RNA sequence: UUAAUAGAUAUAAGCAGGCCAUACAUCUAAAUUUCAGGUGUGUAAGGCUGGGCCGGUAAAACUGGCAGUAGGUAAAAAUAUCUGUGGGACUAUA
Numbered sequence: 001u002u003a004a005u006a007g008a009u010a011u012a013a014g015c016a017g018g019c020c021a022u023a024c025a026u027c028u029a030a031a032u033u034u035c036a037g038g039u040g041u042g043u044a045a046g047g048c049u050g051g052g053c054c055g056g057u058a059a060a061a062c063u064g065g066c067a068g069u070a071g072g073u074a075a076a077a078a079u080a081u082c083u084g085u086g087g088g089a090c091u092a093u094a
Stems, first nucleotide, its partner, number of pairs: 010093003015088001017049004021043008052066005068085006
The record is a 94-nucleotide RNA sequence from Clostridium polyendosporum, which matches "NiCo (Nickel/Cobalt) riboswitch aptamer" in Rfam. Its Rfam clan is "NiCo_riboswitches". On this family, see Furukawa et al., Mol Cell 2015: "Bacterial riboswitches cooperatively bind Ni(2+) or Co(2+) ions and control expression of heavy metal transporters".